Notes
A member of the RNA family "c-di-GMP-I riboswitch aptamer" from Parundibacterium terreum, 87 nucleotides long. The source organism's lineage runs through Bacteria, Pseudomonadati, Burkholderiales, Oxalobacteraceae and Parundibacterium.
RNA sequence: AAGACCUGAGGGCAAACCCGUUGAAAGACGGGGACGCAAAGCCACCGGCCUACAGCGCGCAAGCGCCAUGGCAGCGGGGUUGCCGAU
Numbered sequence: 001a002a003g004a005c006c007u008g009a010g011g012g013c014a015a016a017c018c019c020g021u022u023g024a025a026a027g028a029c030g031g032g033g034a035c036g037c038a039a040a041g042c043c044a045c046c047g048g049c050c051u052a053c054a055g056c057g058c059g060c061a062a063g064c065g066c067c068a069u070g071g072c073a074g075c076g077g078g079g080u081u082g083c084c085g086a087u
Stems, first nucleotide, its partner, number of pairs: 012037002017032006040081004045077003048072003055066004